[Rfam]
RNA sequence: GAGAAUAGGGAAAAGGAAGCCAUGAGUAUCUUAGAGUGGUGGGCAUGGGAACAUGGAGGAAAGCCUAGAUUUCUUGGCCACUUAAUUUAGGGGCAAAUAUUGUUUUGUGUUUUCCUGAUGCCUCCCAUGCCUAUUGUUCUUAGGUAUUCCUUCCUUUUCCUAUUUGCU
Numbered sequence: 001g002a003g004a005a006u007a008g009g010g011a012a013a014a015g016g017a018a019g020c021c022a023u024g025a026g027u028a029u030c031u032u033a034g035a036g037u038g039g040u041g042g043g044c045a046u047g048g049g050a051a052c053a054u055g056g057a058g059g060a061a062a063g064c065c066u067a068g069a070u071u072u073c074u075u076g077g078c079c080a081c082u083u084a085a086u087u088u089a090g091g092g093g094c095a096a097a098u099a100u101u102g103u104u105u106u107g108u109g110u111u112u113u114c115c116u117g118a119u120g121c122c123u124c125c126c127a128u129g130c131c132u133a134u135u136g137u138u139c140u141u142a143g144g145u146a147u148u149c150c151u152u153c154c155u156u157u158u159c160c161u162a163u164u165u166g167c168u
Stems, first nucleotide, its partner, number of pairs: 009159005015153003024149003029144003033140006040133011052120003056116001058115007
RNA: MIR2118 microRNA precursor family
Organism: Triticum turgidum